[Rfam]
RNA sequence: AGGAGGAACAACUGCAGUGGCAGCGGCCAGCUCUGGAGUCCUGGAGUCAGCUCCUGCAGUGACUACAGAGCUCUCCAUCUGCAAGGCCUGGAUGCUCCGGGGUGGG
Number, nucleotide and partner (000 for none) at each position: 001a000002g098003g097004a096005g095006g000007a093008a000009c090010a089011a000012c086013u085014g000015c000016a000017g000018u000019g079020g078021c000022a000023g075024c000025g074026g073027c000028c000029a072030g071031c070032u069033c068034u067035g066036g000037a064038g000039u000040c000041c059042u058043g057044g000045a000046g000047u000048c000049a000050g000051c000052u000053c000054c000055u000056g000057c043058a042059g041060u000061g000062a000063c000064u037065a000066c035067a034068g033069a032070g031071c030072u029073c026074u025075c023076c000077a000078u020079c019080u000081g000082c000083a000084a000085g013086g012087c000088c000089u010090g009091g000092a000093u007094g000095c005096u004097c003098c002099g000100g000101g000102g000103u000104g000105g000106g000

Rfam assigns this 106-nucleotide RNA sequence from Canis lupus to the family "mir-8834 microRNA precursor family". Gene Ontology terms of the family: miRNA-mediated post-transcriptional gene silencing and RISC complex. It scores 61 bits against the family's covariance model. The base pairs follow the family's consensus structure, which was predicted with RNAalifold.